The record is a 591-nucleotide part of an RNA from Lentisphaera araneosa, which matches "Bacterial large subunit ribosomal RNA" in Rfam.
Nucleotides: 591
Base pairs, nucleotide, nucleotide: 007554008553009552010551011550012549013548014547015546016545022539023504024503027475028474029472030471031470032469033468034467035466036464037463038172039171046107047106048105049062050061051060068101069100070099071098072097073096074095077089078088079087112121113120114119122141123140124139125138126137127136128135143169144168145167146166147165148164149163150162151161176207177205178204179203180202181201187194188193217224218223227460228255229254230253231252232251238246239245258457259456260455261454266285267284268283269282270281271280272279292399293398294397296393297392298391299390300389307385308384309383310382311381312380313379314378315377316376317375318374319373321369322368323367327342329340331338345349351363352362353361405429406428407427408426409425410424411423436451437450438449439448440447491498492497514525515524516523517522562588563587564586565585568582569581570580571579
Number, partner (000 for none) and nucleotide at each position: 001000u002000a003000g004000u005000a006000a007554g008553g009552g010551u011550g012549u013548a014547u015546g016545a017000u018000g019000g020000a021000u022539g023504c024503c025000u026000u027475g028474g029472c030471a031470c032469u033468a034467a035466c036464a037463g038172g039171c040000g041000a042000u043000g044000a045000a046107g047106g048105a049062c050061g051060c052000g053000u054000u055000a056000a057000g058000c059000u060051g061050c062049g063000a064000a065000a066000a067000u068101c069100c070099u071098c072097g073096g074095g075000g076000a077089g078088c079087u080000g081000c082000a083000a084000a085000a086000g087079a088078g089077c090000u091000u092000u093000g094000a095074u096073c097072c098071g099070g100069g101068g102000g103000u104000a105048u106047c107046c108000g109000a110000a111000u112121g113120g114119g115000g116000a117000a118000a119114c120113c121112c122141a123140a124139c125138u126137g127136g128135a129000g130000u131000u132000a133000u134000g135128u136127c137126c138125a139124g140123u141122u142000a143169u144168c145167c146166c147165u148164a149163a150162c151161u152000g153000a154000a155000u156000a157000a158000a159000u160000a161151g162150g163149u164148u165147a166146g167145g168144g169143a170000a171039g172038c173000g174000a175000a176207c177205c178204u179203a180202g181201g182000g183000a184000a185000g186000u187194g188193a189000a190000a191000c192000a193188u194187c195000u196000c197000a198000g199000u200000a201181c202180c203179u204178a205177g206000a207176g208000g209000a210000a211000a212000a213000g214000a215000a216000a217224u218223c219000a220000a221000c222000c223218g224217a225000g226000a227460u228255u229254g230253c231252g232251c233000u234000a235000g236000u237000a238246g239245c240000g241000g242000c243000g244000a245239g246238c247000g248000a249000a250000c251232g252231c253230g254229c255228a256000a257000g258457a259456g260455c261454c262000u263000a264000a265000a266285c267284c268283u269282a270281a271280a272279a273000g274000c275000a276000u277000g278000c279272u280271u281270u282269u283268a284267g285266g286000g287000g288000u289000u290000g291000c292399g293398g294397g295000a296393c297392c298391u299390g300389c301000a302000a303000c304000a305000u306000u307385g308384u309383a310382u311381u312380g313379a314378a315377g316376a317375g318374a319373u320000a321369g322368c323367u324000g325000a326000a327342u328000a329340g330000u331338u332000u333000g334000g335000a336000a337000a338331a339000u340329c341000c342327a343000a344000c345349c346000a347000c348000a349345g350000a351363g352362g353361g354000u355000g356000a357000u358000a359000g360000u361353c362352c363351c364000g365000u366000a367323a368322g369321c370000g371000a372000a373319a374318u375317u376316u377315c378314u379313u380312u381311a382310a383309u384308a385307u386000a387000u388000a389300g390299c391298g392297g393296g394000u395000a396000u397294c398293c399292c400000a401000a402000g403000u404000a405429g406428g407427g408426c409425c410424g411423g412000a413000c414000a415000c416000g417000u418000g419000a420000a421000a422000c423411c424410c425409g426408g427407u428406c429405u430000g431000a432000a433000u434000c435000a436451g437450g438449g439448a440447g441000g442000g443000c444000c445000a446000c447440c448439u449438u450437c451436c452000a453000a454261g455260g456259c457258u458000a459000a460227a461000u462000a463037c464036u465000c466035g467034u468033u469032a470031g471030u472029g473000a474028c475027c476000g477000a478000u479000a480000g481000u482000g483000a484000a485000c486000c487000a488000g489000u490000a491498c492497c493000g494000u495000g496000a497492g498491g499000g500000a501000a502000a503024g504023g505000c506000g507000a508000a509000a510000a511000g512000a513000a514525c515524c516523c517522c518000g519000u520000a521000a522517g523516g524515g525514g526000a527000g528000u529000g530000a531000a532000a533000u534000a535000g536000a537000a538000c539022c540000u541000g542000a543000a544000a545016u546015c547014a548013u549012a550011c551010a552009u553008c554007u555000a556000c557000a558000a559000a560000g561000u562588g563587u564586g565585g566000g567000u568582c569581a570580u571579c572000u573000u574000u575000a576000u577000a578000u579571g580570a581569u582568g583000u584000a585565c586564c587563g588562c589000a590000u591000g